This 123-nucleotide RNA sequence from Drosophila willistoni belongs to the Rfam family "U5 spliceosomal RNA". The source organism's lineage runs through Eukaryota, Aparaglossata, Acalyptratae, Drosophilinae and Sophophora. Rfam classes the family as a spliceosomal small nuclear RNA. The family has 180 seed sequences and 28,527 matches in Rfam 15.1.
RNA sequence: UUACUCUGGCUUCUCUUCAGUUGUCGAAUAAAUCUUUCGCCUUUUACUAAAGAUUUCCGUGGAGAGGUGCACUCUAAUGAGUCUAUUUAGAAUUUUUCACUGUGCCUGACUACCAGUCGGGCA
Numbered sequence: 001u002u003a004c005u006c007u008g009g010c011u012u013c014u015c016u017u018c019a020g021u022u023g024u025c026g027a028a029u030a031a032a033u034c035u036u037u038c039g040c041c042u043u044u045u046a047c048u049a050a051a052g053a054u055u056u057c058c059g060u061g062g063a064g065a066g067g068u069g070c071a072c073u074c075u076a077a078u079g080a081g082u083c084u085a086u087u088u089a090g091a092a093u094u095u096u097u098c099a100c101u102g103u104g105c106c107u108g109a110c111u112a113c114c115a116g117u118c119g120g121g122c123a
Base pairs, nucleotide, nucleotide: 003082004081005080006079009070010069012067013066014065015064016063017062018061019060030056031055032054033053034052035051036050037049104122105121106120107119108118109117